[Rfam]
RNA sequence: CUGAACAACCCACCACUAAAUCUUAGAUUAUAGUGGGGGCUUGAAAAACAAGUCCAUAGUUGACCCGCCUAAGUUUUAAUUAACUACGUUAUCUCGGUCAAGAUACCAAAGAAUACUUCACCAGUUCUUUGCAAAGAUCGUCAGUCAUUAAACAUCCGAGUUGGGUUUAGGAAGUGUGGCUGGCAUAACAAGUCGAAAUAACAUUGGCUUUUCGCAACAAAU
Numbered sequence: 001c002u003g004a005a006c007a008a009c010c011c012a013c014c015a016c017u018a019a020a021u022c023u024u025a026g027a028u029u030a031u032a033g034u035g036g037g038g039g040c041u042u043g044a045a046a047a048a049c050a051a052g053u054c055c056a057u058a059g060u061u062g063a064c065c066c067g068c069c070u071a072a073g074u075u076u077u078a079a080u081u082a083a084c085u086a087c088g089u090u091a092u093c094u095c096g097g098u099c100a101a102g103a104u105a106c107c108a109a110a111g112a113a114u115a116c117u118u119c120a121c122c123a124g125u126u127c128u129u130u131g132c133a134a135a136g137a138u139c140g141u142c143a144g145u146c147a148u149u150a151a152a153c154a155u156c157c158g159a160g161u162u163g164g165g166u167u168u169a170g171g172a173a174g175u176g177u178g179g180c181u182g183g184c185a186u187a188a189c190a191a192g193u194c195g196a197a198a199u200a201a202c203a204u205u206g207g208c209u210u211u212u213c214g215c216a217a218c219a220a221a222u
Stems, first nucleotide, its partner, number of pairs: 001062001004061003008057001010039002013036002017030003040052004067208003071204001072085004088202005094196005103138002107131008117216001119214001140184009152175002155172003159168002
Annotation:
Rfam assigns this 222-nucleotide RNA from Crinalium epipsammum to the family "HNH endonuclease-associated RNA and ORF (HEARO) RNA". The match comes from Rfam's covariance-model search (109 bits). The family has 139 seed sequences and 952 matches in Rfam 15.1. By type it is a non-coding RNA gene.